Rfam assigns this 87-nucleotide sequence from Serpentinicella alkaliphila to the family "c-di-GMP-I riboswitch aptamer". Taxonomically the source falls in Serpentinicella (Bacteria, Bacillati, Bacillota, Peptostreptococcales). From the family's description: GEMM was predicted in a large-scale screen for bacterial structured RNA regulatory elements.

RNA sequence: CACCGAUAAAGGCAAACCACUCGAAAGGGUGGGACGCAAAGCCAUAGGGCCUAACGCAUUUAAUGCUAAGGCAGCCGUGUUACCGAA
Number, nucleotide and partner (000 for none) at each position: 001c000002a000003c000004c000005g000006a000007u000008a000009a000010a000011g000012g037013c036014a000015a000016a000017c032018c031019a030020c029021u028022c027023g000024a000025a000026a000027g022028g021029g020030u019031g018032g017033g000034a000035c000036g013037c012038a000039a000040a081041g080042c079043c000044a000045u000046a000047g076048g075049g072050c071051c070052u000053a000054a000055c000056g066057c065058a064059u063060u000061u000062a000063a059064u058065g057066c056067u000068a000069a000070g051071g050072c049073a000074g000075c048076c047077g000078u000079g042080u041081u040082a000083c000084c000085g000086a000087a000